[Rfam]
RNA sequence: GUACUUACCUGGCAGGGGGAUACCAUGAUCACGAAGGUGAUUUUCCGAGCGUGAGGCUUAGCUAUUGCAGUCUGGAUGUGCCGACCCCUGCGAUUUUCCCAAAUGUGGGAAACUCAACUGCUUAAUUUGUGGUAGUGGGGGACUGCGUUUCGUGCUUUCCCCUA
Numbered sequence: 001g002u003a004c005u006u007a008c009c010u011g012g013c014a015g016g017g018g019g020a021u022a023c024c025a026u027g028a029u030c031a032c033g034a035a036g037g038u039g040a041u042u043u044u045c046c047g048a049g050c051g052u053g054a055g056g057c058u059u060a061g062c063u064a065u066u067g068c069a070g071u072c073u074g075g076a077u078g079u080g081c082c083g084a085c086c087c088c089u090g091c092g093a094u095u096u097u098c099c100c101a102a103a104u105g106u107g108g109g110a111a112a113c114u115c116a117a118c119u120g121c122u123u124a125a126u127u128u129g130u131g132g133u134a135g136u137g138g139g140g141g142a143c144u145g146c147g148u149u150u151c152g153u154g155c156u157u158u159c160c161c162c163u164a
Stems, first nucleotide, its partner, number of pairs: 012121004016046005022041001024039003048089002051086001053085001055082003059078002062075002092115002094112003098108002137163006145155003
U1 spliceosomal RNA: a 164-nucleotide RNA sequence from Callithrix jacchus. Rfam describes the family as follows. U1 is a small nuclear RNA (snRNA) component of the spliceosome (involved in pre-mRNA splicing). Rfam links the family to the GO terms U1 snRNP, pre-mRNA 5'-splice site binding and mRNA 5'-splice site recognition. Pairs were carried over by alignment from the consensus structure, which is taken from published work.